[Rfam]
RNA sequence: AUCGCGACAAAGUUUGGUAACUCCACCACCGUUGGCGUUUUAUUUACAGUCAAUGGUGUCAGAGUUCCCACCCCUUGACGCGUG
Numbered sequence: 001a002u003c004g005c006g007a008c009a010a011a012g013u014u015u016g017g018u019a020a021c022u023c024c025a026c027c028a029c030c031g032u033u034g035g036c037g038u039u040u041u042a043u044u045u046a047c048a049g050u051c052a053a054u055g056g057u058g059u060c061a062g063a064g065u066u067c068c069c070a071c072c073c074c075u076u077g078a079c080g081c082g083u084g
Stems, first nucleotide, its partner, number of pairs: 003082004008077003012073001016069002019066005027058001029056008
Shown here is an 84-nucleotide RNA from Trichogramma brassicae, a member of the family "mir-2765 microRNA precursor family".
The base pairs follow the family's consensus structure, which was predicted with RNAalifold.
NCBI's taxonomy places the organism under Eukaryota, Metazoa, Bilateria, Dicondylia, Trichogramma.
Rfam 15.1 lists 109 matches to the family in 106 species.